[Rfam]
RNA sequence: AUCAAAUGAAGACCUCCUAACUUUGUUUGAUAGAAAUCCUAAACUUUUUCAUAAUAAUCUCCCUAAUAAAGUCACCCAAUUGGUGGCUUUUUU
Numbered sequence: 001a002u003c004a005a006a007u008g009a010a011g012a013c014c015u016c017c018u019a020a021c022u023u024u025g026u027u028u029g030a031u032a033g034a035a036a037u038c039c040u041a042a043a044c045u046u047u048u049u050c051a052u053a054a055u056a057a058u059c060u061c062c063c064u065a066a067u068a069a070a071g072u073c074a075c076c077c078a079a080u081u082g083g084u085g086g087c088u089u090u091u092u093u
Stems, first nucleotide, its partner, number of pairs: 001031011068090009
The record is a 93-nucleotide sequence from Streptococcus anginosus, which matches "Cia-dependent small RNA csRNA1" in Rfam. NCBI's taxonomy places the organism under Bacteria, Bacillati, Bacillota, Streptococcus, Streptococcus anginosus. The sequence is in the family's curated seed alignment. The literature on the family includes a 2007 paper in Mol Microbiol by Halfmann et al., "Identification of the genes directly controlled by the response regulator CiaR in Streptococcus pneumoniae: five out of 15 promoters drive expression of small non-coding RNAs".